[Rfam]
RNA sequence: GAACAGUGUCGCGACUGGCGUGCAGAUGGGUGACCAUCGGGGAGCGACAACGUAAGUAUUUGUUUACUUCACAAACUAAGGCCGCUCGCCUGGGUCGCUGUA
Numbered sequence: 001g002a003a004c005a006g007u008g009u010c011g012c013g014a015c016u017g018g019c020g021u022g023c024a025g026a027u028g029g030g031u032g033a034c035c036a037u038c039g040g041g042g043a044g045c046g047a048c049a050a051c052g053u054a055a056g057u058a059u060u061u062g063u064u065u066a067c068u069u070c071a072c073a074a075a076c077u078a079a080g081g082c083c084g085c086u087c088g089c090c091u092g093g094g095u096c097g098c099u100g101u102a
Stems, first nucleotide, its partner, number of pairs: 003053002007049006015041002017090004026037004080096004

Source information: Shown here is a 102-nucleotide RNA from Leucobacter sp. OH1287, a member of the family "ZMP/ZTP riboswitch aptamer (pfl RNA motif)". It scores 54 bits against the family's covariance model.